[Rfam]
RNA sequence: UUUGCUAAGGUCAAGUAUUACCCUUAGCAAUACAUAAGUAGCAUGUAGCA
Number, nucleotide and partner (000 for none) at each position: 001u000002u030003u029004g028005c027006u026007a025008a024009g023010g022011u000012c000013a000014a000015g000016u000017a000018u000019u000020a000021c000022c010023c009024u008025u007026a006027g005028c004029a003030a002031u000032a000033c000034a000035u000036a000037a000038g000039u000040a000041g000042c000043a000044u000045g000046u000047a000048g000049c000050a000
Record summary: Rfam assigns this 50-nucleotide sequence to the family "ssNA-helicase RNA". The sequence is in the family's curated seed alignment. Rfam classes the family as a small RNA.